[Rfam]
Nucleotides: 071
Stems, first nucleotide, its partner, number of pairs: 001071004
Number, partner (000 for none) and nucleotide at each position: 001071a002070a003069c004068c005000u006000g007000u008000g009000a010000u011000g012000a013000u014000g015000a016000g017000a018000u019000u020000c021000u022000g023000c024000c025000u026000a027000a028000u029000u030000a031000u032000u033000u034000c035000u036000a037000u038000g039000a040000u041000u042000a043000u044000a045000c046000c047000u048000c049000u050000a051000c052000u053000a054000u055000u056000c057000c058000a059000u060000u061000u062000a063000u064000c065000u066000g067000a068004g069003g070002u071001u

The family of this 71-nucleotide sequence from Salmo salar is "Small nucleolar RNA SNORD47". Rfam 15.1 lists 755 matches to the family in 638 species. The family's RNA type in Rfam is C/D-box small nucleolar RNA. It scores 56 bits against the family's covariance model. Rfam links the family to the GO terms nucleolus and RNA processing.